[Rfam]
RNA sequence: UUGUUUCUCUUUUGUAGGUCACUUUGGAUAAAAGUGUCUGCUAAAUGCAUAAAU
Numbered sequence: 001u002u003g004u005u006u007c008u009c010u011u012u013u014g015u016a017g018g019u020c021a022c023u024u025u026g027g028a029u030a031a032a033a034g035u036g037u038c039u040g041c042u043a044a045a046u047g048c049a050u051a052a053a054u
Base pairs, nucleotide, nucleotide: 013043014041015040016039020036021035022034023033024032025031